[Rfam]
RNA sequence: UCUACCCGAAUCAUAGUCCAUGUGGGGUUCCAUUCGCAUGAGUUUCAUGGACUCGAUUCAUAGAUCUAUGACACUCAAUGCGAGAUGGGACCUCGGUGGGCCAAUGGUUCAGUACC
Numbered sequence: 001u002c003u004a005c006c007c008g009a010a011u012c013a014u015a016g017u018c019c020a021u022g023u024g025g026g027g028u029u030c031c032a033u034u035c036g037c038a039u040g041a042g043u044u045u046c047a048u049g050g051a052c053u054c055g056a057u058u059c060a061u062a063g064a065u066c067u068a069u070g071a072c073a074c075u076c077a078a079u080g081c082g083a084g085a086u087g088g089g090a091c092c093u094c095g096g097u098g099g100g101c102c103a104a105u106g107g108u109u110c111a112g113u114a115c116c
Stems, first nucleotide, its partner, number of pairs: 003114003008110007017100005023095010033084007040076004045071007053064002
RNA: mir-63 microRNA precursor family
Organism: Pristionchus pacificus